Record summary
The family of this 48-nucleotide sequence from Acanthosepion pharaonis is "nuoG RNA". The source organism's lineage runs through Eukaryota, Eumetazoa, Bilateria, Spiralia and Acanthosepion.

RNA sequence: GGAUUUUUGAUUAACGUUAGUGUUUGAUCCAGGUUAACAAUUUGGGAG
Numbered sequence: 001g002g003a004u005u006u007u008u009g010a011u012u013a014a015c016g017u018u019a020g021u022g023u024u025u026g027a028u029c030c031a032g033g034u035u036a037a038c039a040a041u042u043u044g045g046g047a048g
Stems, first nucleotide, its partner, number of pairs: 016038005

The base pairs follow the family's consensus structure, which is taken from published work. It scores 33 bits against the family's covariance model.